[Rfam]
RNA: ROOL RNA
RNA sequence: GCCGUAAUUAAAAAUAACAGAUACCCUAGUGAAGAAGGGCUGUCACCCUGCUAGGACAUUCUUAGAGCAGUCUGUAUUAAGAAGGAUACCUUUUAAUAUAGGGCUUAAGUGACAUUAUAAUUAGUAAGUUUUACUUAUUAAAAAGAUGAAGCUUAAAGGUUACGGAAAGUACCAAUAGUUAGGAAUGGUGUAUCUAUACAGUUUAAUAUAAUGCCGCAACAGUGUGGGGAGAGUAAUAGACGCUUGAGAAGAGAAGAACCUUAAGUCUUAGUCCUGUGGUGGGAUUGAGCAGCUUAAGGAAUACCAACCAAUCUCCUUUGCUAUGAUGUUGUAGAAAUACAACUAUAACACACAGCAGCGGACAAGUAGCCCAUAGGCGUGAAAUGAUGAAACAGUAUGUUUAAAAUUGUUUAAAAUUCUGAAUGAUGGGUGAAAGUUGCAGGUAGAAAGUCCUGUCAUAGCAUUGGGGAGAAAUCCUGUGGUAAGAAGUUUAGAGGUCGCUCCUUUAAGCUCAGACUUAUCAUCUAUGUAGCAUAAUAAUAGCGAACUGUAUAGGAUAAGAUGAAGGUCUAUCUGUUUUAUUUUAU
Numbered sequence: 001g002c003c004g005u006a007a008u009u010a011a012a013a014a015u016a017a018c019a020g021a022u023a024c025c026c027u028a029g030u031g032a033a034g035a036a037g038g039g040c041u042g043u044c045a046c047c048c049u050g051c052u053a054g055g056a057c058a059u060u061c062u063u064a065g066a067g068c069a070g071u072c073u074g075u076a077u078u079a080a081g082a083a084g085g086a087u088a089c090c091u092u093u094u095a096a097u098a099u100a101g102g103g104c105u106u107a108a109g110u111g112a113c114a115u116u117a118u119a120a121u122u123a124g125u126a127a128g129u130u131u132u133a134c135u136u137a138u139u140a141a142a143a144a145g146a147u148g149a150a151g152c153u154u155a156a157a158g159g160u161u162a163c164g165g166a167a168a169g170u171a172c173c174a175a176u177a178g179u180u181a182g183g184a185a186u187g188g189u190g191u192a193u194c195u196a197u198a199c200a201g202u203u204u205a206a207u208a209u210a211a212u213g214c215c216g217c218a219a220c221a222g223u224g225u226g227g228g229g230a231g232a233g234u235a236a237u238a239g240a241c242g243c244u245u246g247a248g249a250a251g252a253g254a255a256g257a258a259c260c261u262u263a264a265g266u267c268u269u270a271g272u273c274c275u276g277u278g279g280u281g282g283g284a285u286u287g288a289g290c291a292g293c294u295u296a297a298g299g300a301a302u303a304c305c306a307a308c309c310a311a312u313c314u315c316c317u318u319u320g321c322u323a324u325g326a327u328g329u330u331g332u333a334g335a336a337a338u339a340c341a342a343c344u345a346u347a348a349c350a351c352a353c354a355g356c357a358g359c360g361g362a363c364a365a366g367u368a369g370c371c372c373a374u375a376g377g378c379g380u381g382a383a384a385u386g387a388u389g390a391a392a393c394a395g396u397a398u399g400u401u402u403a404a405a406a407u408u409g410u411u412u413a414a415a416a417u418u419c420u421g422a423a424u425g426a427u428g429g430g431u432g433a434a435a436g437u438u439g440c441a442g443g444u445a446g447a448a449a450g451u452c453c454u455g456u457c458a459u460a461g462c463a464u465u466g467g468g469g470a471g472a473a474a475u476c477c478u479g480u481g482g483u484a485a486g487a488a489g490u491u492u493a494g495a496g497g498u499c500g501c502u503c504c505u506u507u508a509a510g511c512u513c514a515g516a517c518u519u520a521u522c523a524u525c526u527a528u529g530u531a532g533c534a535u536a537a538u539a540a541u542a543g544c545g546a547a548c549u550g551u552a553u554a555g556g557a558u559a560a561g562a563u564g565a566a567g568g569u570c571u572a573u574c575u576g577u578u579u580u581a582u583u584u585u586a587u
Base pairs, nucleotide, nucleotide: 009586010585011584012583013582016579017578020575025055026054027053028052029051036049037048038047039046057187058186059185060184061183062182069105070104071103072101073100074099076097077096078095079094080093081092082091084089106117107116108115120135122133123132124131195555201549207543212540216359217358220355222353223352224351225350226349227317228316229315230314231313232312243253244252245251259299260298261297262296263295264294267289268288269287270286271285272284273283277306278305279304280303319379320378321377322376328343329342330341331340332339363436369431370430371429372428373427374426418516419515420514421513442454443453458528459527460526461477468476469475479525482522485519486518489512491509492508493507494506495505496504497503560571561570562569563568